[Rfam]
A member of the RNA family "Ribosomal protein L20 leader" from Halalkalibacter okhensis, 123 nucleotides long.
Its family is annotated with regulation of gene expression in the Gene Ontology.
The family's RNA type in Rfam is cis-regulatory leader.
The match comes from Rfam's covariance-model search (78 bits).
RNA sequence: CAAAGCAAGCAGAAGCGCCCGCUUCUCACCUGAUUGACGCGUAAGCAGUUUACAGGUAUGAACAGUUUCAUUUCUAUGAAUGGACGAAGUGUGGGCGUAGUGCGCCUACACUUUUUUUGUACU
Numbered sequence: 001c002a003a004a005g006c007a008a009g010c011a012g013a014a015g016c017g018c019c020c021g022c023u024u025c026u027c028a029c030c031u032g033a034u035u036g037a038c039g040c041g042u043a044a045g046c047a048g049u050u051u052a053c054a055g056g057u058a059u060g061a062a063c064a065g066u067u068u069c070a071u072u073u074c075u076a077u078g079a080a081u082g083g084a085c086g087a088a089g090u091g092u093g094g095g096c097g098u099a100g101u102g103c104g105c106c107u108a109c110a111c112u113u114u115u116u117u118u119g120u121a122c123u
Stems, first nucleotide, its partner, number of pairs: 011026006028057003036050003039046002090110009
Dot-bracket structure: ..........((((((....)))))).(((.....(((((....)).)))....)))................................(((((((((...))))))))).............

Notes:
On this family, see Zengel and Lindahl, Prog Nucleic Acid Res Mol Biol 1994: "Diverse mechanisms for regulating ribosomal protein synthesis in Escherichia coli". Taxonomically the source falls in Halalkalibacter (Bacteria, Bacillati, Bacilli, Bacillaceae).